The family of this 135-nucleotide RNA from Dipodomys ordii is "Small nucleolar RNA SNORA46". Rfam links the family to the GO terms RNA processing and nucleolus. Rfam describes the family as follows. ACA46 is a member of the H/ACA class of snoRNA that guide the sites of modification of uridines to pseudouridines. It scores 115 bits against the family's covariance model.
RNA sequence: AGCACUAUAUUUAAACCGAUGAUGGGAUUUUCCCCAUUUUUGGUUACGCUGUAGUGCAAAAGAAUUCCUGGCUCUUCGUGUUGCACAGCUGUUAUAUGGCACUCAGUGGUUGCUGUAUAGAGUCAAGGAACAUGA
Numbered sequence: 001a002g003c004a005c006u007a008u009a010u011u012u013a014a015a016c017c018g019a020u021g022a023u024g025g026g027a028u029u030u031u032c033c034c035c036a037u038u039u040u041u042g043g044u045u046a047c048g049c050u051g052u053a054g055u056g057c058a059a060a061a062g063a064a065u066u067c068c069u070g071g072c073u074c075u076u077c078g079u080g081u082u083g084c085a086c087a088g089c090u091g092u093u094a095u096a097u098g099g100c101a102c103u104c105a106g107u108g109g110u111u112g113c114u115g116u117a118u119a120g121a122g123u124c125a126a127g128g129a130a131c132a133u134g135a
Base pairs, nucleotide, nucleotide: 002057003056004055005054006053007052008051009050014045015044016043017042021038022037023036024035025034026033065130066129067128068127069126070124071123072122073121074120075119079117080116083113084112085111086109088107089106091104